[Rfam]
The family of this 71-nucleotide RNA from Scyliorhinus torazame is "mir-451 microRNA precursor family". The match comes from Rfam's covariance-model search (68 bits). Pairs were carried over by alignment from the consensus structure, which was predicted with RNAalifold. Rfam links the family to the GO terms RISC complex and miRNA-mediated post-transcriptional gene silencing.
RNA sequence: AAGGGAGUGUCGGUUAAACCGUUACCAUUACUUGUUUAAGUACUGGUAAGGGUUAUACUGCUGCUCCCAAA
Numbered sequence: 001a002a003g004g005g006a007g008u009g010u011c012g013g014u015u016a017a018a019c020c021g022u023u024a025c026c027a028u029u030a031c032u033u034g035u036u037u038a039a040g041u042a043c044u045g046g047u048a049a050g051g052g053u054u055a056u057a058c059u060g061c062u063g064c065u066c067c068c069a070a071a
Stems, first nucleotide, its partner, number of pairs: 007064003011060003017054004022049006029042005